SAM riboswitch aptamer (S box leader): a 117-nucleotide sequence from Gorillibacterium sp.
The base pairs follow the family's consensus structure, which is taken from published work.
The SAM riboswitch is found upstream of a number of genes which code for proteins involved in methionine or cysteine biosynthesis in Gram-positive bacteria.
[Rfam]
RNA sequence: UUCUUAUUCAGAGUGGCGGAGGGAAAGGCCCGAUGACGCCCGGCAACCGUCCUGUUGUUACAACAGGCAAAUUGGUGCCAAUUCCUUCGGAGUUCAAUGAACUCCGAUAAAUGAGAA
Numbered sequence: 001u002u003c004u005u006a007u008u009c010a011g012a013g014u015g016g017c018g019g020a021g022g023g024a025a026a027g028g029c030c031c032g033a034u035g036a037c038g039c040c041c042g043g044c045a046a047c048c049g050u051c052c053u054g055u056u057g058u059u060a061c062a063a064c065a066g067g068c069a070a071a072u073u074g075g076u077g078c079c080a081a082u083u084c085c086u087u088c089g090g091a092g093u094u095c096a097a098u099g100a101a102c103u104c105c106g107a108u109a110a111a112u113g114a115g116a117a
Stems, first nucleotide, its partner, number of pairs: 001117008013041001015040003021031003025087004042079004047075002050070001083109001088106006